[Rfam]
RNA: Bacterial large signal recognition particle RNA
Organism: Bacillus mesophilus
RNA sequence: CCGUGCUAAGCGGGGAGGUAGCGGUGCCCUGUACUCGCAAUCCGCUCUAGCGAGGCCGAAUUCCUUCCAGAGGUUUAUUCACUGUAAGGUCUGCCCUUAGUAAGUGGUGUUGACGUUCGGGUCCUGCGCAACGGGAAUCCAUGAACCCUGUCAGGUCCGGAAGGAAGCAGCAGUAAGUGGACCAUCUCGUGUGCCGCGGGGUUGCCUGAACCGAGCUAACUGCUAAGGUAACGCUUAUGGUGUUAAAUCGACGGAAGGUGCACGG
Numbered sequence: 001c002c003g004u005g006c007u008a009a010g011c012g013g014g015g016a017g018g019u020a021g022c023g024g025u026g027c028c029c030u031g032u033a034c035u036c037g038c039a040a041u042c043c044g045c046u047c048u049a050g051c052g053a054g055g056c057c058g059a060a061u062u063c064c065u066u067c068c069a070g071a072g073g074u075u076u077a078u079u080c081a082c083u084g085u086a087a088g089g090u091c092u093g094c095c096c097u098u099a100g101u102a103a104g105u106g107g108u109g110u111u112g113a114c115g116u117u118c119g120g121g122u123c124c125u126g127c128g129c130a131a132c133g134g135g136a137a138u139c140c141a142u143g144a145a146c147c148c149u150g151u152c153a154g155g156u157c158c159g160g161a162a163g164g165a166a167g168c169a170g171c172a173g174u175a176a177g178u179g180g181a182c183c184a185u186c187u188c189g190u191g192u193g194c195c196g197c198g199g200g201g202u203u204g205c206c207u208g209a210a211c212c213g214a215g216c217u218a219a220c221u222g223c224u225a226a227g228g229u230a231a232c233g234c235u236u237a238u239g240g241u242g243u244u245a246a247a248u249c250g251a252c253g254g255a256a257g258g259u260g261c262a263c264g265g
Stems, first nucleotide, its partner, number of pairs: 001265006010056002012030004017025001019023001034054005063258006072249005080242009092230002096227006104220002106217003115211008123200006129191002132189005138181005148173004156165003